[Rfam]
RNA sequence: AGCUCUGUGAUUGUUCAGCCUGAUUUAGGCAAUAUACGCUAUUCUGAUUUUUCAAAAGAAUGAACAGACAACUUUGAGAGAAAAAAUGAGAGCU
Numbered sequence: 001a002g003c004u005c006u007g008u009g010a011u012u013g014u015u016c017a018g019c020c021u022g023a024u025u026u027a028g029g030c031a032a033u034a035u036a037c038g039c040u041a042u043u044c045u046g047a048u049u050u051u052u053c054a055a056a057a058g059a060a061u062g063a064a065c066a067g068a069c070a071a072c073u074u075u076g077a078g079a080g081a082a083a084a085a086a087u088g089a090g091a092g093c094u
Stems, first nucleotide, its partner, number of pairs: 001094005

The record is a 94-nucleotide sequence from Hibiscus trionum, which matches "Small nucleolar RNA U54" in Rfam. The organism belongs to Hibiscus, within Eukaryota. Rfam describes the family as follows. U54 is a C/D box small nucleolar RNA, which acts as a methylation guide for 18S ribosomal RNA in plants. It is annotated as a C/D-box small nucleolar RNA. Rfam 15.1 lists 614 matches to the family in 206 species.